[Rfam]
The record is a 131-nucleotide sequence from Mus musculus, which matches "Small nucleolar RNA SNORA71" in Rfam. The family's RNA type in Rfam is H/ACA-box small nucleolar RNA. Rfam links the family to the GO terms nucleolus and RNA processing. The members of this family belong to the H/ACA class of snoRNAs which bind a number of proteins (including dyskerin, Gar1p and Nop10p) to form snoRNP complexes.

RNA sequence: GCCUGUAUUCCAAGUUGAUUGUGGAUUGCUUAUGCCCUGGUCAUUGAUACAGCAGGGAUAGGAAGCGAAAGCCUUUUCCUGUGUUUGGAAGGUCAACUCCUGUCCUUGUGAAACCUUGGUGCUUUCGAAGA
Numbered sequence: 001g002c003c004u005g006u007a008u009u010c011c012a013a014g015u016u017g018a019u020u021g022u023g024g025a026u027u028g029c030u031u032a033u034g035c036c037c038u039g040g041u042c043a044u045u046g047a048u049a050c051a052g053c054a055g056g057g058a059u060a061g062g063a064a065g066c067g068a069a070a071g072c073c074u075u076u077u078c079c080u081g082u083g084u085u086u087g088g089a090a091g092g093u094c095a096a097c098u099c100c101u102g103u104c105c106u107u108g109u110g111a112a113a114c115c116u117u118g119g120u121g122c123u124u125u126c127g128a129a130g131a
Stems, first nucleotide, its partner, number of pairs: 002056005009049001014045001016043006023037002026034001066127007083114004089107004